[Rfam]
The record is a 107-nucleotide RNA sequence, which matches "Plant small nucleolar RNA R71" in Rfam. By type it is a C/D-box small nucleolar RNA.

RNA sequence: AAGCCAUGAUGAGGGCAUUGGUUGGUAUAACCCUUAAAACACUCUCAUGCUUCACAGAAGCUUUCACCAGCUUUCUGUAAAAAGCCGGAGAUCUCAUUUCUGAGUCU
Number, nucleotide and partner (000 for none) at each position: 001a107002a000003g105004c104005c102006a101007u000008g000009a000010u000011g000012a000013g000014g000015g000016c000017a000018u000019u000020g000021g000022u000023u000024g000025g000026u000027a000028u000029a000030a000031c000032c000033c000034u000035u000036a000037a000038a000039a000040c000041a000042c000043u000044c000045u000046c000047a000048u000049g000050c000051u000052u000053c000054a000055c000056a000057g074058a073059a000060g071061c000062u000063u000064u000065c000066a000067c000068c000069a000070g000071c060072u000073u058074u057075c000076u000077g000078u000079a000080a000081a000082a000083a000084g000085c000086c000087g000088g000089a000090g000091a000092u000093c000094u000095c000096a000097u000098u000099u000100c000101u006102g005103a000104g004105u003106c000107u001

Notes:
The base pairs follow the family's consensus structure, which was predicted with PFOLD.